[Rfam]
RNA sequence: GAAGUCUGAGGGUAAGUUGCUUUUAGUACGAGAGGAACAGGGCAACGGUGCCACUGGUGUAUCAGUUGUCCGACAGGGCAAUGCUGAGCAGCUACGCACUAAGGAAUAAGAGCUGAAUGCAUCUAAGCUCGAAAUCUAACCCGAAAAGAGACGUCACUAAGGAUACCGGUAAAAGACCGGAUUGAUAGAGUUGGGAUGUACGCAUCAAGGCAACGAGAUGUUAAGUCCGCGACCACUAACCAUCCGUG
Numbered sequence: 001g002a003a004g005u006c007u008g009a010g011g012g013u014a015a016g017u018u019g020c021u022u023u024u025a026g027u028a029c030g031a032g033a034g035g036a037a038c039a040g041g042g043c044a045a046c047g048g049u050g051c052c053a054c055u056g057g058u059g060u061a062u063c064a065g066u067u068g069u070c071c072g073a074c075a076g077g078g079c080a081a082u083g084c085u086g087a088g089c090a091g092c093u094a095c096g097c098a099c100u101a102a103g104g105a106a107u108a109a110g111a112g113c114u115g116a117a118u119g120c121a122u123c124u125a126a127g128c129u130c131g132a133a134a135u136c137u138a139a140c141c142c143g144a145a146a147a148g149a150g151a152c153g154u155c156a157c158u159a160a161g162g163a164u165a166c167c168g169g170u171a172a173a174a175g176a177c178c179g180g181a182u183u184g185a186u187a188g189a190g191u192u193g194g195g196a197u198g199u200a201c202g203c204a205u206c207a208a209g210g211c212a213a214c215g216a217g218a219u220g221u222u223a224a225g226u227c228c229g230c231g232a233c234c235a236c237u238a239a240c241c242a243u244c245c246g247u248g
Base pairs, nucleotide, nucleotide: 001155002154004152005151006150007149010142011141012140013139016046017045018044019043020042021041022040023039047100048099049098050097051096055094056093057092062087063086064085065084066083067080068079069078070077071076103137104136105135110130111129112128113127114126161245162244163243164242166180167179168178169177186238187237188236190233191232192231193230194228195227196226202221203220204219205218206217209214
RNA: Archaeal large subunit ribosomal RNA, nucleotides 2677 to 2924
Organism: Methanosalsum zhilinae